[Rfam]
RNA sequence: GGGUGCUUGAUCCUAUUUGGUUCAAGCAUUUUAUGUAAGAACUAGAUAAGAGAAAGCCUCGUUAAUUAUUUACAUUUAUGUAACAAUCAACGAGGCGCACAUCUUAACCUAACCAAUUAAGAUUGUGCCUCCUUGAAAUUAAGGAGUCAAGGAAAAUGACCAAGUAUG
Numbered sequence: 001g002g003g004u005g006c007u008u009g010a011u012c013c014u015a016u017u018u019g020g021u022u023c024a025a026g027c028a029u030u031u032u033a034u035g036u037a038a039g040a041a042c043u044a045g046a047u048a049a050g051a052g053a054a055a056g057c058c059u060c061g062u063u064a065a066u067u068a069u070u071u072a073c074a075u076u077u078a079u080g081u082a083a084c085a086a087u088c089a090a091c092g093a094g095g096c097g098c099a100c101a102u103c104u105u106a107a108c109c110u111a112a113c114c115a116a117u118u119a120a121g122a123u124u125g126u127g128c129c130u131c132c133u134u135g136a137a138a139u140u141a142a143g144g145a146g147u148c149a150a151g152g153a154a155a156a157u158g159a160c161c162a163a164g165u166a167u168g
Stems, first nucleotide, its partner, number of pairs: 001060003005057004011051002014048010026036002061091003065087003069083002092131005101123007137157001139155002
A member of the RNA family "sok antitoxin (CssrC)" from Providencia sneebia, 168 nucleotides long.
Rfam classes the family as an antitoxin RNA.
The family's consensus secondary structure is taken from published work.
A search with the family's covariance model found it, with a score of 88 bits.
From the family's description: Also identified in Shigella as CssrC.
For this family Rfam cites "An antisense RNA controls synthesis of an SOS-induced toxin evolved from an antitoxin" (Kawano et al., Mol Microbiol, 2007).